Shown here is a 129-nucleotide RNA from Acetobacterium bakii, a member of the family "FMN riboswitch aptamer (RFN element)". Pairs were carried over by alignment from the consensus structure, which is taken from published work. The match comes from Rfam's covariance-model search (105 bits).
[Rfam]
RNA sequence: AGUCUGUUUCAGGGCGAGGUGUAAGUCCUCACCGGUGGUGAUAUGCGAAAGCAAUAAGUCCACGAGCCGAAAGGCCGAUUUGGUUAGAAUCCAAAACCGACGGUAGAGUCCGGAUGAAAGAAAUGGCGU
Numbered sequence: 001a002g003u004c005u006g007u008u009u010c011a012g013g014g015c016g017a018g019g020u021g022u023a024a025g026u027c028c029u030c031a032c033c034g035g036u037g038g039u040g041a042u043a044u045g046c047g048a049a050a051g052c053a054a055u056a057a058g059u060c061c062a063c064g065a066g067c068c069g070a071a072a073g074g075c076c077g078a079u080u081u082g083g084u085u086a087g088a089a090u091c092c093a094a095a096a097c098c099g100a101c102g103g104u105a106g107a108g109u110c111c112g113g114a115u116g117a118a119a120g121a122a123a124u125g126g127c128g129u
Stems, first nucleotide, its partner, number of pairs: 004126007017029003031109002033099002035063004058097002066075003079095005101112003